Shown here is a 127-nucleotide sequence from Vitis rotundifolia, a member of the family "MIR845_2 microRNA precursor family". The family's consensus secondary structure was predicted with WAR. Rfam links the family to the GO terms miRNA-mediated post-transcriptional gene silencing and RISC complex.
Nucleotides: 127
Base pairs, nucleotide, nucleotide: 009117010116011115012114018104019103020102021101022100024098025097026096027095028094029093044082045081049076050075052073053072056069057068058067059066
Number, partner (000 for none) and nucleotide at each position: 001000a002000g003000a004000a005000a006000a007000c008000a009117c010116a011115u012114u013000a014000u015000c016000c017000c018104u019103a020102g021101g022100g023000c024098c025097a026096u027095g028094g029093g030000a031000u032000a033000a034000a035000c036000g037000a038000a039000a040000a041000c042000c043000c044082u045081g046000a047000a048000a049076a050075a051000a052073c053072a054000a055000g056069u057068u058067a059066g060000c061000a062000c063000a064000c065000c066059c067058u068057a069056g070000a071000a072053u073052g074000g075050u076049u077000c078000u079000a080000g081045c082044a083000u084000g085000a086000u087000u088000a089000c090000u091000a092000a093029c094028c095027u096026a097025u098024g099000a100022c101021u102020u103019u104018a105000a106000u107000a108000c109000c110000a111000a112000u113000u114012g115011a116010u117009g118000g119000g120000a121000a122000a123000a124000c125000c126000c127000a